Background: mir-574 microRNA precursor family: a 77-nucleotide RNA from Myotis davidii. The organism belongs to Myotis, within Eukaryota. The base pairs follow the family's consensus structure, which was predicted with RNAalifold. Gene Ontology terms of the family: RISC complex and miRNA-mediated post-transcriptional gene silencing. A reference for the family is Nielsen et al. (2010), "MicroRNA identity and abundance in porcine skeletal muscles determined by deep sequencing", Anim Genet.

RNA sequence: AGGCCCAAAGAGAGAGGCAGGGUCUGAUCUGCAGCCUCCAUGGCAGCUGUUGAUCAGCCCUUGCCUCUUUCUCUCCA
Number, nucleotide and partner (000 for none) at each position: 001a000002g000003g000004c000005c000006c000007a000008a000009a072010g071011a070012g069013a068014g067015a066016g065017g064018c063019a062020g061021g000022g059023u000024c057025u056026g055027a054028u053029c052030u000031g000032c049033a048034g047035c046036c000037u000038c000039c000040a000041u000042g000043g000044c000045a000046g035047c034048u033049g032050u000051u000052g029053a028054u027055c026056a025057g024058c000059c022060c000061u020062u019063g018064c017065c016066u015067c014068u013069u012070u011071c010072u009073c000074u000075c000076c000077a000